[Rfam]
RNA: Small nucleolar RNA SNORD97
Organism: Ameiurus melas
RNA sequence: GCACCCAGUGAUUAUAAAAAGACGCGUUAUUCUGAGGGUUUUGCUAGAUGUCAGCUUUUCUACCUUUUCUCCUCUAUACUUUCUUCCACUGUUCUCUGAAGCUGACAACUGGUCCUUUGACUGCGAUUAUGAGAUAUGAGGGUGC
Numbered sequence: 001g002c003a004c005c006c007a008g009u010g011a012u013u014a015u016a017a018a019a020a021g022a023c024g025c026g027u028u029a030u031u032c033u034g035a036g037g038g039u040u041u042u043g044c045u046a047g048a049u050g051u052c053a054g055c056u057u058u059u060c061u062a063c064c065u066u067u068u069c070u071c072c073u074c075u076a077u078a079c080u081u082u083c084u085u086c087c088a089c090u091g092u093u094c095u096c097u098g099a100a101g102c103u104g105a106c107a108a109c110u111g112g113u114c115c116u117u118u119g120a121c122u123g124c125g126a127u128u129a130u131g132a133g134a135u136a137u138g139a140g141g142g143u144g145c
Stems, first nucleotide, its partner, number of pairs: 001145006035058006